Guanidine-II riboswitch aptamer (mini-ykkC): a 51-nucleotide RNA from Aureimonas sp. Leaf460. The family's consensus secondary structure is taken from published work. The match comes from Rfam's covariance-model search (41 bits). Rfam links the family to the GO term regulation of gene expression.
RNA sequence: CGGCGGGGACGACCCCGCCCAAGUGCCGUCUGAUCAAUCGGGACGACCCGG
Numbered sequence: 001c002g003g004c005g006g007g008g009a010c011g012a013c014c015c016c017g018c019c020c021a022a023g024u025g026c027c028g029u030c031u032g033a034u035c036a037a038u039c040g041g042g043a044c045g046a047c048c049c050g051g
Stems, first nucleotide, its partner, number of pairs: 002019007038051005